[Rfam]
RNA sequence: GGACCAAUGAUGACUUACAAAAAUGAAUCUUGUUAGAAUCUGAACAAAAUGAGUGACCAAACCACUUCUGUGAGCUGAAGUCC
Numbered sequence: 001g002g003a004c005c006a007a008u009g010a011u012g013a014c015u016u017a018c019a020a021a022a023a024u025g026a027a028u029c030u031u032g033u034u035a036g037a038a039u040c041u042g043a044a045c046a047a048a049a050u051g052a053g054u055g056a057c058c059a060a061a062c063c064a065c066u067u068c069u070g071u072g073a074g075c076u077g078a079a080g081u082c083c
Stems, first nucleotide, its partner, number of pairs: 001083004026054001028052002030047003
Annotation:
The family of this 83-nucleotide RNA sequence from Marmota monax is "Small nucleolar RNA SNORD116". Rfam classes the family as a C/D-box small nucleolar RNA. NCBI's taxonomy places the organism under Eukaryota, Bilateria, Euteleostomi, Mammalia, Marmota.